[Rfam]
RNA: Guanidine-I riboswitch aptamer
Organism: Bacterioplanoides sp. SCSIO 12839
RNA sequence: GAAAUAGAACGCUAGGGUUCCGGUCUUAUUGGUCUGAAAUACAUAUCAAACCGUAAGAUGGCUGGUCCGAGAGCGUUCGACCUCUCCUUUUUCUGCAACGCAAUUGAUUGUAGAAAAAACACAGGUUACACGGCGGGAUAAAAGCCCGGGAGAC
Numbered sequence: 001g002a003a004a005u006a007g008a009a010c011g012c013u014a015g016g017g018u019u020c021c022g023g024u025c026u027u028a029u030u031g032g033u034c035u036g037a038a039a040u041a042c043a044u045a046u047c048a049a050a051c052c053g054u055a056a057g058a059u060g061g062c063u064g065g066u067c068c069g070a071g072a073g074c075g076u077u078c079g080a081c082c083u084c085u086c087c088u089u090u091u092u093c094u095g096c097a098a099c100g101c102a103a104u105u106g107a108u109u110g111u112a113g114a115a116a117a118a119a120c121a122c123a124g125g126u127u128a129c130a131c132g133g134c135g136g137g138a139u140a141a142a143a144g145c146c147c148g149g150g151a152g153a154c
Stems, first nucleotide, its partner, number of pairs: 007078006015068002020065002022062001023059006079127005129149001131152001135147003